The family of this 145-nucleotide RNA sequence from Streptomyces albireticuli is "c-di-AMP riboswitch aptamer (ydaO/yuaA leader)". Rfam's curators write: This family represents a conserved RNA structure found upstream of the ydaO and yuaA genes in Bacillus subtilis and related genes in other bacteria. The pairing is the family consensus, mapped onto this sequence. Lineage of the source: Bacteria > Actinomycetota > Kitasatosporales > Streptomycetaceae > Streptomyces. The literature on the family includes a 2004 paper in Proc Natl Acad Sci U S A by Barrick et al., "New RNA motifs suggest an expanded scope for riboswitches in bacterial genetic control". It scores 87 bits against the family's covariance model.

RNA sequence: GGCACAGCUCCACCUGAUCCACCAGCGGUAUCUGGGAACCGGGGAACCACCAACCCUGGGGUGAAUCGGGCCGCACUCCGGCCCGUAGGAGACCUUCCUGCUCCGAACCCGUCAGCUAACCCGGUAGGCGAGAAGGAAGGAAAGG
Numbered sequence: 001g002g003c004a005c006a007g008c009u010c011c012a013c014c015u016g017a018u019c020c021a022c023c024a025g026c027g028g029u030a031u032c033u034g035g036g037a038a039c040c041g042g043g044g045a046a047c048c049a050c051c052a053a054c055c056c057u058g059g060g061g062u063g064a065a066u067c068g069g070g071c072c073g074c075a076c077u078c079c080g081g082c083c084c085g086u087a088g089g090a091g092a093c094c095u096u097c098c099u100g101c102u103c104c105g106a107a108c109c110c111g112u113c114a115g116c117u118a119a120c121c122c123g124g125u126a127g128g129c130g131a132g133a134a135g136g137a138a139g140g141a142a143a144g145g
Stems, first nucleotide, its partner, number of pairs: 011130001013128002018037003038125006048058002059110003067085004088104004